[Rfam]
Rfam assigns this 79-nucleotide RNA sequence from Enterococcus cecorum to the family "Group II catalytic intron D1-D4-1". It scores 42 bits against the family's covariance model. A reference for the family is Bonen and Vogel (2001), "The ins and outs of group II introns", Trends Genet. Rfam links the family to the GO term Group II intron splicing.

RNA sequence: AGAUUUCAUGUGCGAAAGAAGCUUAUAUCUGGGAGUCAGCUGAAGUCAUAGUACUGAUAAUAGACGCGUCAGGAAGGAC
Dot-bracket structure: ((.((((...(....).))))))............((....)).(((......(((((.........)))))....)))